[Rfam]
RNA sequence: UGCGCAUGCCCUUAAAAGAAACAAGAGGAUUUCAUGUGUAUAUAUUCCUUCCUAAAAAUUGUUCUUUUCUCUUGGAGGAUAAAGUGGAUGCAAUGUCCAGCAUGCGCA
Numbered sequence: 001u002g003c004g005c006a007u008g009c010c011c012u013u014a015a016a017a018g019a020a021a022c023a024a025g026a027g028g029a030u031u032u033c034a035u036g037u038g039u040a041u042a043u044a045u046u047c048c049u050u051c052c053u054a055a056a057a058a059u060u061g062u063u064c065u066u067u068u069c070u071c072u073u074g075g076a077g078g079a080u081a082a083a084g085u086g087g088a089u090g091c092a093a094u095g096u097c098c099a100g101c102a103u104g105c106g107c108a
Base pairs, nucleotide, nucleotide: 001108002107003106004105005104006103007102008101009100022074023073024072025071026070027069028068078085086098087097088096